[Rfam]
Rfam assigns this 80-nucleotide sequence from Elysia chlorotica to the family "mir-31 microRNA precursor family". Gene Ontology terms of the family: RISC complex and gene silencing by miRNA. The literature on the family includes a 2010 paper in Genes Dev by Chiang et al., "Mammalian microRNAs: experimental evaluation of novel and previously annotated genes".
RNA sequence: GAGACCUAACUAGGCAAGAUGUUGGCAUAGCUGAGUCCUCCAACUGUCAGCUGUGUCAUAUGUUGCCAUUUUUGGUCUUA
Number, nucleotide and partner (000 for none) at each position: 001g000002a000003g000004a000005c075006c074007u000008a072009a071010c000011u000012a000013g067014g066015c065016a064017a063018g000019a061020u060021g059022u000023u058024g057025g056026c055027a054028u053029a052030g051031c050032u000033g000034a000035g000036u000037c000038c000039u000040c000041c000042a000043a000044c000045u000046g000047u000048c000049a000050g031051c030052u029053g028054u027055g026056u025057c024058a023059u021060a020061u019062g000063u017064u016065g015066c014067c013068a000069u000070u000071u009072u008073u000074g006075g005076u000077c000078u000079u000080a000